[Rfam]
RNA sequence: GGGGAUGUCGGGUUUCGACAGGCGGUUGGAUUGAAGAAUUGCAGGUCGAGGUGUCGGUACGCACUCUCGUUAAACAACCGACAAAACAUAGUUGCCAAACCAGCAACACAACAAUUCGCUUUCGCUGCCUAAGAAGUAGCGAUGCGACGUCUGCCCGCCUUUUCCUCGUGGGGGCGGUUCCAGGCGUCAUACACACGAGGUGCAGUGGCAGCCACCGUCUUCUAACUGUCACUAAAGACUAGAGGGCCAACGCUUAGGAAUCCUGUCGAUGGGAGCCCAAGGCGAUAAAGAAAUACAUCGACUAAACCUGUAGUACAUUCCUCGGUAGGGCCGUUUGGACAGGGAGUUCAACUCUCCCUCAUCUCCACCA
Number, nucleotide and partner (000 for none) at each position: 001g366002g365003g364004g363005a362006u361007g360008u000009c000010g000011g000012g000013u000014u000015u000016c000017g000018a000019c337020a336021g335022g334023c333024g332025g331026u330027u329028g000029g000030a326031u325032u324033g323034a322035a000036g320037a319038a318039u317040u000041g000042c310043a309044g308045g307046u306047c069048g068049a067050g066051g065052u000053g082054u081055c080056g079057g078058u077059a000060c000061g000062c000063a000064c000065u051066c050067u049068c048069g047070u000071u000072a000073a000074a000075c000076a000077a058078c057079c056080g055081a054082c053083a000084a000085a000086a000087c000088a000089u000090a000091g000092u000093u000094g000095c000096c000097a000098a000099a000100c000101c000102a000103g000104c000105a000106a000107c000108a000109c000110a000111a000112c000113a000114a000115u000116u000117c000118g000119c000120u144121u000122u142123c141124g140125c139126u138127g137128c136129c000130u000131a000132a000133g000134a000135a000136g128137u127138a126139g125140c124141g123142a122143u000144g120145c000146g000147a000148c186149g185150u184151c183152u182153g181154c000155c177156c176157g175158c174159c173160u172161u171162u000163u000164c200165c199166u198167c197168g196169u195170g194171g161172g160173g159174g158175c157176g156177g155178u000179u000180c000181c153182a152183g151184g150185c149186g148187u000188c000189a000190u000191a000192c000193a000194c170195a169196c168197g167198a166199g165200g164201u000202g000203c000204a000205g232206u231207g230208g229209c228210a227211g226212c000213c000214a000215c000216c000217g248218u000219c246220u245221u244222c000223u000224a000225a000226c211227u210228g209229u208230c207231a206232c205233u000234a000235a000236a000237g000238a000239c000240u000241a000242g000243a000244g221245g220246g219247c000248c217249a000250a000251c284252g283253c282254u281255u280256a000257g278258g277259a000260a000261u274262c273263c272264u000265g302266u301267c300268g299269a000270u295271g294272g263273g262274a261275g000276c000277c258278c257279a000280a255281g254282g253283c252284g251285a000286u000287a000288a000289a000290g000291a000292a000293a000294u271295a270296c000297a000298u000299c268300g267301a266302c265303u000304a000305a000306a046307c045308c044309u043310g042311u000312a000313g000314u000315a000316c000317a039318u038319u037320c036321c000322u034323c033324g032325g031326u030327a000328g000329g027330g026331c025332c024333g023334u022335u021336u020337g019338g000339a000340c000341a359342g358343g357344g356345a000346g354347u000348u000349c000350a000351a000352c000353u000354c346355u000356c344357c343358c342359u341360c007361a006362u005363c004364u003365c002366c001367a000368c000369c000370a000